The family of this 136-nucleotide RNA sequence from Phascolarctobacterium succinatutens is "Ribosomal protein L10 leader". The family's consensus secondary structure was predicted with CMfinder. Lineage of the source: Bacteria > Bacillota > Negativicutes > Acidaminococcaceae > Phascolarctobacterium succinatutens. Rfam classes the family as a cis-regulatory leader. This family is a putative r-protein leader autoregulatory structure found in B. subtilis and other low-GC Gram-positive bacteria. It scores 57 bits against the family's covariance model.
RNA sequence: AAUCAGAAGAUAAUCGGGCCAUAGACAGCAGGUGCCACAUGCGUAAGUUUUAACUACGCCUGCCGAGGCUGGAGCGUGAAGAUAUAUUAGACCUUCCGACCUCCGGCUACGGCCGAGAGGUCUUUUUGAUUUAAUA
Numbered sequence: 001a002a003u004c005a006g007a008a009g010a011u012a013a014u015c016g017g018g019c020c021a022u023a024g025a026c027a028g029c030a031g032g033u034g035c036c037a038c039a040u041g042c043g044u045a046a047g048u049u050u051u052a053a054c055u056a057c058g059c060c061u062g063c064c065g066a067g068g069c070u071g072g073a074g075c076g077u078g079a080a081g082a083u084a085u086a087u088u089a090g091a092c093c094u095u096c097c098g099a100c101c102u103c104c105g106g107c108u109a110c111g112g113c114c115g116a117g118a119g120g121u122c123u124u125u126u127u128g129a130u131u132u133a134a135u136a
Base pairs, nucleotide, nucleotide: 028063029062030061031060032059033058034042035041099121100120101119102118103117104115105114106113107112